Rfam assigns this 89-nucleotide RNA from Cnuibacter physcomitrellae to the family "Glycine riboswitch aptamer".

RNA sequence: CACGUCACAGCGGGAGAGCCGGCUCGAGCCGGCACCGAAGGAGCAAUCCUCCCCGAUAAUCUCUCAGGUCCUCGUACCGCUGUGACCAG
Numbered sequence: 001c002a003c004g005u006c007a008c009a010g011c012g013g014g015a016g017a018g019c020c021g022g023c024u025c026g027a028g029c030c031g032g033c034a035c036c037g038a039a040g041g042a043g044c045a046a047u048c049c050u051c052c053c054c055g056a057u058a059a060u061c062u063c064u065c066a067g068g069u070c071c072u073c074g075u076a077c078c079g080c081u082g083u084g085a086c087c088a089g
Base pairs, nucleotide, nucleotide: 006084007083008082009081010080011079012078013077019032020031021030022029034069035068036067037065038064041063042062043061047056048055